Shown here is a 97-nucleotide sequence from Bagarius yarrelli, a member of the family "Z30 small nucleolar RNA". The base pairs follow the family's consensus structure, which was predicted with PFOLD.
RNA sequence: CGGCGAUGAUGAGUAAAGAAACAUGGCUGACUUGGUAUUGACACCUUUGGGUGUCUUUGACCAGGGCUUGAUUGUGUUUAAUCUUCUCUCUGAGCUG
Numbered sequence: 001c002g003g004c005g006a007u008g009a010u011g012a013g014u015a016a017a018g019a020a021a022c023a024u025g026g027c028u029g030a031c032u033u034g035g036u037a038u039u040g041a042c043a044c045c046u047u048u049g050g051g052u053g054u055c056u057u058u059g060a061c062c063a064g065g066g067c068u069u070g071a072u073u074g075u076g077u078u079u080a081a082u083c084u085u086c087u088c089u090c091u092g093a094g095c096u097g
Base pairs, nucleotide, nucleotide: 003095004094040055041054042053043052
Annotation: Rfam classes the family as a C/D-box small nucleolar RNA. Gene Ontology terms of the family: nucleolus and RNA processing.